[Rfam]
RNA: raiA RNA
RNA sequence: UAUAAUUAGGUCUGUGGUUGAAAGUCCAUGCCAGUCGCAGGCGAAAGGACCCACGUAAGGCAGCCUAAAAAUGGAGCUGCUGAGCAUGGUGCGGCUUAGAGGUAAGACCUGCCAGAAGGGUGAUGGAUGUACUGUACAUAGAUCAUUACUUCUGAGAGGGGGAGUAGUGGCGGCGAACCCAGAGCGAAACUUCCAGCAGGCGAGUGUGGGGUCAAAGACCAGGUCAGCUAAGUAUA
Numbered sequence: 001u002a003u004a005a006u007u008a009g010g011u012c013u014g015u016g017g018u019u020g021a022a023a024g025u026c027c028a029u030g031c032c033a034g035u036c037g038c039a040g041g042c043g044a045a046a047g048g049a050c051c052c053a054c055g056u057a058a059g060g061c062a063g064c065c066u067a068a069a070a071a072u073g074g075a076g077c078u079g080c081u082g083a084g085c086a087u088g089g090u091g092c093g094g095c096u097u098a099g100a101g102g103u104a105a106g107a108c109c110u111g112c113c114a115g116a117a118g119g120g121u122g123a124u125g126g127a128u129g130u131a132c133u134g135u136a137c138a139u140a141g142a143u144c145a146u147u148a149c150u151u152c153u154g155a156g157a158g159g160g161g162g163a164g165u166a167g168u169g170g171c172g173g174c175g176a177a178c179c180c181a182g183a184g185c186g187a188a189a190c191u192u193c194c195a196g197c198a199g200g201c202g203a204g205u206g207u208g209g210g211g212u213c214a215a216a217g218a219c220c221a222g223g224u225c226a227g228c229u230a231a232g233u234a235u236a
Stems, first nucleotide, its partner, number of pairs: 001236004006231004012227003015221005028207003031041001033096007050089002058081002062078003087214001108200005113154005158193004167185002